[Rfam]
RNA sequence: AUGAAUGUAAGGGGAGAGACUACCGUAUGGUAGCGCCGAAGGAGCAAGCCCGGCUGGGUGAAUCUCUCAGGCAAAAAGACCCUUACAGGACG
Numbered sequence: 001a002u003g004a005a006u007g008u009a010a011g012g013g014g015a016g017a018g019a020c021u022a023c024c025g026u027a028u029g030g031u032a033g034c035g036c037c038g039a040a041g042g043a044g045c046a047a048g049c050c051c052g053g054c055u056g057g058g059u060g061a062a063u064c065u066c067u068c069a070g071g072c073a074a075a076a077a078g079a080c081c082c083u084u085a086c087a088g089g090a091c092g
Stems, first nucleotide, its partner, number of pairs: 006087008020033004035072003038068002042066003048059002
A member of the RNA family "Glycine riboswitch aptamer" from Caldalkalibacillus thermarum, 92 nucleotides long.
The organism belongs to Caldalkalibacillus thermarum, within Bacteria.
It scores 76 bits against the family's covariance model.
Rfam links the family to the GO term glycine biosynthetic process.